[Rfam]
Nucleotides: 090
Base pairs, nucleotide, nucleotide: 001089002088003087004086
Number, partner (000 for none) and nucleotide at each position: 001089u002088g003087g004086c005000u006000g007000u008000g009000a010000u011000g012000a013000c014000a015000a016000c017000a018000a019000a020000a021000u022000u023000a024000c025000u026000u027000g028000u029000u030000c031000a032000u033000a034000c035000c036000u037000u038000a039000a040000u041000u042000u043000u044000g045000g046000u047000u048000a049000a050000g051000g052000a053000c054000c055000a056000a057000a058000u059000c060000u061000g062000a063000u064000g065000a066000c067000u068000u069000c070000a071000u072000u073000u074000g075000u076000g077000c078000g079000u080000g081000u082000c083000u084000g085000a086004g087003c088002c089001g090000g